[Rfam]
RNA sequence: GUAUCGGCGACGGUGCUCGGGGAGGAAGCCGCCCUGCUGAGGCAGGGUACCGCAAACGCACGGGCGAUGAAUAAGAACCGAGUCAGGCUGGUCUGGUGGGACGAGUCCGCAACACAGGAUAAAGUCCUCUAUCCAUUAUAAGCCAGGCAGGUAUACUCGGCGCUCGUGUGCGCAAAGAUACGUGU
Numbered sequence: 001g002u003a004u005c006g007g008c009g010a011c012g013g014u015g016c017u018c019g020g021g022g023a024g025g026a027a028g029c030c031g032c033c034c035u036g037c038u039g040a041g042g043c044a045g046g047g048u049a050c051c052g053c054a055a056a057c058g059c060a061c062g063g064g065c066g067a068u069g070a071a072u073a074a075g076a077a078c079c080g081a082g083u084c085a086g087g088c089u090g091g092u093c094u095g096g097u098g099g100g101a102c103g104a105g106u107c108c109g110c111a112a113c114a115c116a117g118g119a120u121a122a123a124g125u126c127c128u129c130u131a132u133c134c135a136u137u138a139u140a141a142g143c144c145a146g147g148c149a150g151g152u153a154u155a156c157u158c159g160g161c162g163c164u165c166g167u168g169u170g171c172g173c174a175a176a177g178a179u180a181c182g183u184g185u
Stems, first nucleotide, its partner, number of pairs: 001016006045185001047183002053177001057172006063165001064163003078160005087152003091148007099127004105120004
Dot-bracket structure: ((((((....))))))............................(.((....(...((((((((((...........(((((....(((.(((((((.((((..((((........))))...))))..............))))))).)))...)))))))).).))))))....)....)).)